[Rfam]
RNA sequence: GUAAAGGAGCAAUAAUGAAUUUCUUGUUCUAUCAAGAAGGUUGAUAUUGCUCCUUUACUUUU
Numbered sequence: 001g002u003a004a005a006g007g008a009g010c011a012a013u014a015a016u017g018a019a020u021u022u023c024u025u026g027u028u029c030u031a032u033c034a035a036g037a038a039g040g041u042u043g044a045u046a047u048u049g050c051u052c053c054u055u056u057a058c059u060u061u062u
Stems, first nucleotide, its partner, number of pairs: 001058014016043003022037005

Annotation: This 62-nucleotide sequence from Digitaria exilis belongs to the Rfam family "Plastid-psbA-2 3UTR RNA". Rfam describes the family as follows. Plastid psbA-2 is a non-coding RNA (ncRNA) present in plastids. It was identified in inverted repeat sequences in the 3 prime untranslate region (3UTR) of photosystem II quinone-binding protein (psbA). The base pairs follow the family's consensus structure, which was predicted with LocARNA. By type it is a cis-regulatory element. Lineage of the source: Eukaryota > Euphyllophyta > Petrosaviidae > Panicodae > Digitaria.